[Rfam]
RNA sequence: UUGACAGAAGAGAGUGAGCACAUGGCGUGAUGCCGGCAUAACAUGUAUGCCGUCUUCGCCGCGUGCUCACUCCUCUUUCUGUCAG
Numbered sequence: 001u002u003g004a005c006a007g008a009a010g011a012g013a014g015u016g017a018g019c020a021c022a023u024g025g026c027g028u029g030a031u032g033c034c035g036g037c038a039u040a041a042c043a044u045g046u047a048u049g050c051c052g053u054c055u056u057c058g059c060c061g062c063g064u065g066c067u068c069a070c071u072c073c074u075c076u077u078u079c080u081g082u083c084a085g
Stems, first nucleotide, its partner, number of pairs: 001085009010075003013071009023061003

This 85-nucleotide sequence from Aegilops tauschii belongs to the Rfam family "mir-156 microRNA precursor family". Gene Ontology terms of the family: miRNA-mediated post-transcriptional gene silencing and RISC complex. Rfam 15.1 lists 1,401 matches to the family in 221 species. About the family: This family represents the plant microRNA (miRNA) precursor mir-156. The source organism's lineage runs through Eukaryota, commelinids, Triticodae, Aegilops and Aegilops tauschii.